Rfam assigns this 192-nucleotide sequence from Phtheirospermum japonicum to the family "small nucleolar RNA snoR143". A reference for the family is Chen and Wu (2009), "Mining small RNA sequencing data: a new approach to identify small nucleolar RNAs in Arabidopsis", Nucleic Acids Res. The family's RNA type in Rfam is H/ACA-box small nucleolar RNA. The family has 3 seed sequences and 660 matches in Rfam 15.1. The family's consensus secondary structure was predicted with RNAalifold. NCBI's taxonomy places the organism under Eukaryota, Euphyllophyta, Magnoliopsida, Lamiales, Phtheirospermum.

[Rfam]
RNA sequence: UUGCACUGCGUAUCAAAGGCUUCCCCAAUAUUCUCAAGAAUGUAUAUAAAUAAAUGGAGAAUCCUUUCGAUCGAAUGUGCAGAAAUGAAAUGCCGAGCUCGAAUCGGCGACGGCCAGACAACCGCUGAGAUGGAUCCACAGAGGAGCGCCGCCUCUUCCACGGCGCUUUUCUACUAAAUCCAUCUCAAAUUU
Numbered sequence: 001u002u003g004c005a006c007u008g009c010g011u012a013u014c015a016a017a018g019g020c021u022u023c024c025c026c027a028a029u030a031u032u033c034u035c036a037a038g039a040a041u042g043u044a045u046a047u048a049a050a051u052a053a054a055u056g057g058a059g060a061a062u063c064c065u066u067u068c069g070a071u072c073g074a075a076u077g078u079g080c081a082g083a084a085a086u087g088a089a090a091u092g093c094c095g096a097g098c099u100c101g102a103a104u105c106g107g108c109g110a111c112g113g114c115c116a117g118a119c120a121a122c123c124g125c126u127g128a129g130a131u132g133g134a135u136c137c138a139c140a141g142a143g144g145a146g147c148g149c150c151g152c153c154u155c156u157u158c159c160a161c162g163g164c165g166c167u168u169u170u171c172u173a174c175u176a177a178a179u180c181c182a183u184c185u186c187a188a189a190u191u192u
Base pairs, nucleotide, nucleotide: 002081003080004079005078006077009073010072013069015067016066017065018064019063021061022060023059025057026056027055127186128185129184130183131182132181133180134179144168145167146166147165148164149163150162